[Rfam]
RNA sequence: AGCAACCACGAAGUUCAGGGCCUUAUGAAGACCCGAAGGACAAUUUUUGGAGGCCCCUCCGAGGAGGUGCG
Numbered sequence: 001a002g003c004a005a006c007c008a009c010g011a012a013g014u015u016c017a018g019g020g021c022c023u024u025a026u027g028a029a030g031a032c033c034c035g036a037a038g039g040a041c042a043a044u045u046u047u048u049g050g051a052g053g054c055c056c057c058u059c060c061g062a063g064g065a066g067g068u069g070c071g
Stems, first nucleotide, its partner, number of pairs: 018034003022030003053070002056067004

The family of this 71-nucleotide sequence is "SmY spliceosomal RNA".
The family has 61 seed sequences and 408 matches in Rfam 15.1.
By type it is a spliceosomal small nuclear RNA.
Rfam's curators put it in the seed alignment.